[Rfam]
Nucleotides: 589
Base pairs, nucleotide, nucleotide: 001585002584003583004582005581006580007579008578010577012575015571022406023405024404025403027402028401029398030397031396032395033394035203036202037201038200042195043194044193045192046191047190048189051154052153054151055150056149057148058147059146060145062143063142064141065140066139078136079135080134081133082132085119086118087117097110098109099108100107101106158183159182160181161180206218207217208216209215219241220240221239222238223237244344245343250302251301252300253299254298255297256282257281259277260276261275262274263273264272283292284291307330308329309328310327313324314323315322332341334339355381356380357379358378360377362376363375364374415456416455417454419453420450421449422448423447424446425445426444430440431439467542468540469539470538471537472534474530475529476528477527480505481504484499485498486497487496488495507521508520509519510518511517548566549565550564551563552561553560554559
Number, partner (000 for none) and nucleotide at each position: 001585c002584c003583u004582g005581c006580a007579c008578c009000u010577g011000g012575a013000c014000a015571g016000a017000a018000a019000g020000a021000c022406c023405c024404u025403a026000u027402g028401a029398a030397g031396u032395u033394u034000u035203a036202c037201u038200g039000u040000u041000c042195c043194c044193u045192g046191g047190g048189a049000u050000u051154g052153g053000c054151u055150u056149u057148g058147g059146g060145c061000c062143u063142u064141u065140c066139c067000u068000a069000c070000g071000c072000a073000g074000c075000u076000u077000a078136g079135g080134u081133g082132g083000a084000a085119g086118g087117c088000g089000a090000a091000g092000a093000a094000g095000g096000c097110c098109c099108c100107c101106u102000u103000c104000c105000g106101a107100g108099g109098g110097g111000g112000c113000c114000c115000a116000a117087g118086c119085c120000a121000u122000c123000a124000g125000u126000g127000a128000g129000a130000u131000a132082c133081c134080a135079c136078u137000c138000u139066g140065g141064a142063a143062g144000a145060g146059c147058u148057c149056g150055g151054a152000u153052u154051c155000u156000a157000a158183c159182c160181u161180u162000g163000u164000g165000u166000c167000a168000g169000a170000c171000u172000c173000g174000c175000g176000g177000g178000c179000c180161a181160a182159g183158g184000g185000a186000c187000a188000g189048u190047c191046u192045c193044a194043g195042g196000u197000a198000a199000a200038u201037a202036g203035u204000u205000u206218c207217u208216a209215u210000g211000g212000g213000g214000c215209g216208u217207a218206g219241g220240c221239c222238u223237c224000c225000c226000a227000a228000a229000a230000g231000g232000u233000a234000a235000c236000a237223g238222a239221g240220g241219c242000a243000u244344g245343u246000a247000a248000c249000g250302g251301u252300u253299u254298c255297c256282u257281u258000g259277g260276g261275c262274c263273a264272g265000a266000c267000g268000g269000a270000c271000a272264u273263u274262g275261g276260u277259c278000c279000u280000c281257g282256a283292g284291u285000g286000c287000a288000a289000a290000g291284g292283c293000a294000g295000a296000a297255g298254g299253g300252a301251g302250c303000u304000u305000g306000a307330c308329u309328g310327c311000a312000a313324g314323a315322c316000u317000c318000a319000c320000c321000c322315g323314u324313c325000g326000a327310g328309c329308a330307g331000a332341g333000a334339c335000g336000a337000a338000a339334g340000u341332c342000g343245g344244c345000c346000u347000u348000a349000g350000u351000g352000a353000u354000c355381c356380g357379a358378u359000g360377g361000u362376g363375c364374c365000g366000a367000g368000u369000g370000g371000a372000a373000g374364g375363g376362u377360c378358a379357u380356c381355g382000c383000u384000c385000a386000a387000c388000g389000g390000a391000u392000a393000a394033a395032a396031g397030u398029u399000a400000c401028u402027c403025u404024a405023g406022g407000g408000a409000u410000a411000a412000c413000a414000g415456g416455c417454u418000g419453a420450u421449c422448u423447u424446c425445c426444c427000c428000a429000a430440g431439a432000g433000u434000c435000c436000a437000c438000a439431u440430u441000g442000a443000c444426g445425g446424g447423a448422a449421g450420g451000u452000u453419u454417g455416g456415c457000a458000c459000c460000u461000c462000g463000a464000u465000g466000u467542c468540g469539g470538c471537u472534c473000u474530u475529u476528g477527c478000c479000a480505c481504c482000a483000u484499g485498a486497g487496c488495u489000g490000u491000a492000g493000g494000u495488g496487g497486u498485u499484c500000c501000a502000a503000g504481g505480g506000u507521u508520g509519g510518g511517u512000u513000g514000u515000u516000u517511g518510c519509c520508c521507a522000u523000u524000a525000a526000u527477g528476c529475g530474g531000u532000a533000c534472g535000u536000g537471a538470g539469c540468u541000g542467g543000g544000u545000u546000u547000a548566g549565a550564a551563c552561g553560u554559c555000g556000u557000g558000a559554g560553a561552c562000u563551g564550u565549u566548c567000g568000g569000u570000c571015c572000a573000u574000a575012u576000a577010c578008g579007g580006u581005g582004u583003g584002g585001g586000u587000g588000u589000u